[Rfam]
RNA sequence: CCAAUAUUAAUCUCGUACAUGGGGUGCACCUACAGGGUGUUCGUCACCCCCUUCACCCCGGGAAGGUCUGAGGAAGGUCACUAGUGCUUAAACUACAUUCUAGCAGGAUGGUUCCUUAACAAGGAACAUGGGGGAACCAGAAAAUCCAGCAUGACCUCUAGCCUGGGACGCACAACCUUGGUGGUUGUGAAGAGGUAUGGAUGUUAUUGCUGUUGGAAACCCCCAUGACCAGCCAUUUUAGCAUAAUCUACGAGAUGGCUAUGGCCAUAACUCAAUUCAGACUAGUCUUUUAUUGG
Numbered sequence: 001c002c003a004a005u006a007u008u009a010a011u012c013u014c015g016u017a018c019a020u021g022g023g024g025u026g027c028a029c030c031u032a033c034a035g036g037g038u039g040u041u042c043g044u045c046a047c048c049c050c051c052u053u054c055a056c057c058c059c060g061g062g063a064a065g066g067u068c069u070g071a072g073g074a075a076g077g078u079c080a081c082u083a084g085u086g087c088u089u090a091a092a093c094u095a096c097a098u099u100c101u102a103g104c105a106g107g108a109u110g111g112u113u114c115c116u117u118a119a120c121a122a123g124g125a126a127c128a129u130g131g132g133g134g135a136a137c138c139a140g141a142a143a144a145u146c147c148a149g150c151a152u153g154a155c156c157u158c159u160a161g162c163c164u165g166g167g168a169c170g171c172a173c174a175a176c177c178u179u180g181g182u183g184g185u186u187g188u189g190a191a192g193a194g195g196u197a198u199g200g201a202u203g204u205u206a207u208u209g210c211u212g213u214u215g216g217a218a219a220c221c222c223c224c225a226u227g228a229c230c231a232g233c234c235a236u237u238u239u240a241g242c243a244u245a246a247u248c249u250a251c252g253a254g255a256u257g258g259c260u261a262u263g264g265c266c267a268u269a270a271c272u273c274a275a276u277u278c279a280g281a282c283u284a285g286u287c288u289u290u291u292a293u294u295g296g
Stems, first nucleotide, its partner, number of pairs: 001296004009288001012254006021059005035049005068280005076230004096110005111127006128226007147212003255268005